[Rfam]
RNA sequence: AUUUUGUUGUGAUUUUUCAUUCGUAUAUUCUUAGAAAUAUGGUCUAAGAGUCUCUACUAGGAACCGUUAAUUCCUAACUACGAAUGGGUAGGAGAAGUCU
Numbered sequence: 001a002u003u004u005u006g007u008u009g010u011g012a013u014u015u016u017u018c019a020u021u022c023g024u025a026u027a028u029u030c031u032u033a034g035a036a037a038u039a040u041g042g043u044c045u046a047a048g049a050g051u052c053u054c055u056a057c058u059a060g061g062a063a064c065c066g067u068u069a070a071u072u073c074c075u076a077a078c079u080a081c082g083a084a085u086g087g088g089u090a091g092g093a094g095a096a097g098u099c100u
Stems, first nucleotide, its partner, number of pairs: 018086008029049007058076006